A member of the RNA family "pan motif" from Alkalicoccobacillus porphyridii, 90 nucleotides long. NCBI's taxonomy places the organism under Bacteria, Bacilli, Caryophanales, Bacillaceae, Alkalicoccobacillus. The match comes from Rfam's covariance-model search (52 bits). The family's RNA type in Rfam is cis-regulatory element.
RNA sequence: UGGGCUGUAUUAUCGAAUGAGAUAAACAGCACCAGUUAAAAAAGUGUUUAAAACAGUACUGCCUUGAUCCAAAUGGACAGGGACGGGUGU
Numbered sequence: 001u002g003g004g005c006u007g008u009a010u011u012a013u014c015g016a017a018u019g020a021g022a023u024a025a026a027c028a029g030c031a032c033c034a035g036u037u038a039a040a041a042a043a044g045u046g047u048u049u050a051a052a053a054c055a056g057u058a059c060u061g062c063c064u065u066g067a068u069c070c071a072a073a074u075g076g077a078c079a080g081g082g083a084c085g086g087g088u089g090u
Base pairs, nucleotide, nucleotide: 001034002033003032004030005029006028007027008026010025011024012023013022014021059086060085061084062082063081064080065079066078068077069076070075